[Rfam]
RNA sequence: UAAGUUACCUUAAAUAGAAGCAUUCAUUUUAGGUUGGAAGAGUAAGUGCUUCUCUUUGGGGUAGUAUUA
Numbered sequence: 001u002a003a004g005u006u007a008c009c010u011u012a013a014a015u016a017g018a019a020g021c022a023u024u025c026a027u028u029u030u031a032g033g034u035u036g037g038a039a040g041a042g043u044a045a046g047u048g049c050u051u052c053u054c055u056u057u058g059g060g061g062u063a064g065u066a067u068u069a
Stems, first nucleotide, its partner, number of pairs: 004065008014056001016053009026043003